The record is a 52-nucleotide RNA sequence from Capsicum annuum, which matches "MIR1886 microRNA precursor family" in Rfam. Rfam 15.1 lists 1,053 matches to the family in 6 species.
[Rfam]
RNA sequence: UGAGAUGAAAUCAAUGUUUGGACAUGUGAUUUAACGUUGAUUUCAUUUCAUG
Numbered sequence: 001u002g003a004g005a006u007g008a009a010a011u012c013a014a015u016g017u018u019u020g021g022a023c024a025u026g027u028g029a030u031u032u033a034a035c036g037u038u039g040a041u042u043u044c045a046u047u048u049c050a051u052g
Stems, first nucleotide, its partner, number of pairs: 001050017018029003